[Rfam]
Annotation: Rfam assigns this 68-nucleotide RNA from Roseobacter denitrificans to the family "L2-Alphaproteobacteria ribosomal protein leader". The literature on the family includes a 2020 paper in BMC Microbiol by Eckert and Weinberg, "Discovery of 20 novel ribosomal leader candidates in bacteria and archaea". Lineage of the source: Bacteria > Pseudomonadati > Pseudomonadota > Roseobacteraceae > Roseobacter denitrificans. The sequence is in the family's curated seed alignment.
RNA sequence: GGGCACCUACGGGGGCCUUCAUACCAUCGCCGGGGCAACCCGGCGCAUAGCAAAACGGAAGACAGACA
Numbered sequence: 001g002g003g004c005a006c007c008u009a010c011g012g013g014g015g016c017c018u019u020c021a022u023a024c025c026a027u028c029g030c031c032g033g034g035g036c037a038a039c040c041c042g043g044c045g046c047a048u049a050g051c052a053a054a055a056c057g058g059a060a061g062a063c064a065g066a067c068a
Base pairs, nucleotide, nucleotide: 001018002017003016004015006014007013008012028045029044030043031042032041033040034039